Annotation
Shown here is a 304-nucleotide RNA from Halcyon senegalensis, a member of the family "7SK RNA". It scores 256 bits against the family's covariance model. Its Rfam clan is "7SK clan".
RNA sequence: GGAUGUGAGGGCGAUCUGGCUGUGACAUCUGUCACCCCACUGGUGGCCAGGGUUGGUGCAGCUGAUCUGGCUGGCUAGGCGGGUGUCCCCUUCCUCCCUCACCACUCCAUGUGCAUCCCUCCCGAUGCUGCGCGACCUUCCCCGAUAGAGUCGUACCGUUCAAGGGCAUACGGUAGCUGCACUUCCCUGCUAGAACCUCCACACAAGCUCAAGAUCCAUUUGUAGGAGAACACAGGGUAGUCAAGUUUCCAAGACUGCAGACACAUCCAAGCAAGGCACUGCAUGGGGCAGUCUGCUGUUGUUU
Numbered sequence: 001g002g003a004u005g006u007g008a009g010g011g012c013g014a015u016c017u018g019g020c021u022g023u024g025a026c027a028u029c030u031g032u033c034a035c036c037c038c039a040c041u042g043g044u045g046g047c048c049a050g051g052g053u054u055g056g057u058g059c060a061g062c063u064g065a066u067c068u069g070g071c072u073g074g075c076u077a078g079g080c081g082g083g084u085g086u087c088c089c090c091u092u093c094c095u096c097c098c099u100c101a102c103c104a105c106u107c108c109a110u111g112u113g114c115a116u117c118c119c120u121c122c123c124g125a126u127g128c129u130g131c132g133c134g135a136c137c138u139u140c141c142c143c144g145a146u147a148g149a150g151u152c153g154u155a156c157c158g159u160u161c162a163a164g165g166g167c168a169u170a171c172g173g174u175a176g177c178u179g180c181a182c183u184u185c186c187c188u189g190c191u192a193g194a195a196c197c198u199c200c201a202c203a204c205a206a207g208c209u210c211a212a213g214a215u216c217c218a219u220u221u222g223u224a225g226g227a228g229a230a231c232a233c234a235g236g237g238u239a240g241u242c243a244a245g246u247u248u249c250c251a252a253g254a255c256u257g258c259a260g261a262c263a264c265a266u267c268c269a270a271g272c273a274a275g276g277c278a279c280u281g282c283a284u285g286g287g288g289c290a291g292u293c294u295g296c297u298g299u300u301g302u303u304u
Base pairs, nucleotide, nucleotide: 001108002107003106005102006101007100008099009098010097011096013093014092018090019089024087025086026085027084028083029082030081031080032079033078035074036073037070038069039068042067043066044065046062047061117153119150120149121148130141132139176246177245178244182240183239185237186236187235188234189233197228198227199226200225203223204222205221206220207219269304270303271302273299275297276296277295278292279291280290281289282288
Taxonomically the source falls in Halcyon (Eukaryota, Craniata, Vertebrata, Aves).